Bacterial small subunit ribosomal RNA: a 354-nucleotide part of an RNA from Cloacimonas acidaminivorans. Pairs were carried over by alignment from the consensus structure, which is taken from published work.

RNA sequence: GGCGUAAAGUGCAGGUAGGCGGAUAGAUAAGUUUAAGGUUAAAGGCUACGGCUUACCCGUAGUAAGGCGUUAGAUACUGUUUAUCUGGAAUGCGGUUGAGGGAGACAGAAUUCCUGGUGUAGCGGUGGAAUGCGCAGAGAUCAGGAGGAAUACCGAAGGCGAAGGCAGUCUUCUAAGCCGAUAUUGACGCUAAACUGCGAAGGUGUGGGGAUCAAACAGGAUUAGAUACCCUGGUAGUCCACACAGUAAACGAUAAUCACUAGGUGUUGGGUUCGUAUAGGACUCGGUGCCGGAGCUAACGCGAUAAGUGAUUCGCCUGGGGAGUACGAUCGCAAGGUUGAAACUCAAAGGAAU
Numbered sequence: 001g002g003c004g005u006a007a008a009g010u011g012c013a014g015g016u017a018g019g020c021g022g023a024u025a026g027a028u029a030a031g032u033u034u035a036a037g038g039u040u041a042a043a044g045g046c047u048a049c050g051g052c053u054u055a056c057c058c059g060u061a062g063u064a065a066g067g068c069g070u071u072a073g074a075u076a077c078u079g080u081u082u083a084u085c086u087g088g089a090a091u092g093c094g095g096u097u098g099a100g101g102g103a104g105a106c107a108g109a110a111u112u113c114c115u116g117g118u119g120u121a122g123c124g125g126u127g128g129a130a131u132g133c134g135c136a137g138a139g140a141u142c143a144g145g146a147g148g149a150a151u152a153c154c155g156a157a158g159g160c161g162a163a164g165g166c167a168g169u170c171u172u173c174u175a176a177g178c179c180g181a182u183a184u185u186g187a188c189g190c191u192a193a194a195c196u197g198c199g200a201a202g203g204u205g206u207g208g209g210g211a212u213c214a215a216a217c218a219g220g221a222u223u224a225g226a227u228a229c230c231c232u233g234g235u236a237g238u239c240c241a242c243a244c245a246g247u248a249a250a251c252g253a254u255a256a257u258c259a260c261u262a263g264g265u266g267u268u269g270g271g272u273u274c275g276u277a278u279a280g281g282a283c284u285c286g287g288u289g290c291c292g293g294a295g296c297u298a299a300c301g302c303g304a305u306a307a308g309u310g311a312u313u314c315g316c317c318u319g320g321g322g323a324g325u326a327c328g329a330u331c332g333c334a335a336g337g338u339u340g341a342a343a344c345u346c347a348a349a350g351g352a353a354u
Stems, first nucleotide, its partner, number of pairs: 001317003009314001011198004016192001018191003022085007030078002032074005038068003045063007089185003093180005100174007107151001111147008122133003159166002203244006213237001217233004255313006263291012295302002319346003328339004
Gene Ontology terms of the family: ribosome and structural constituent of ribosome.
NCBI's taxonomy places the organism under Bacteria, Candidatus Cloacimonadota, Cloacimonadia (SeqCode), Cloacimonas (SeqCode), Cloacimonas acidaminivorans (SeqCode).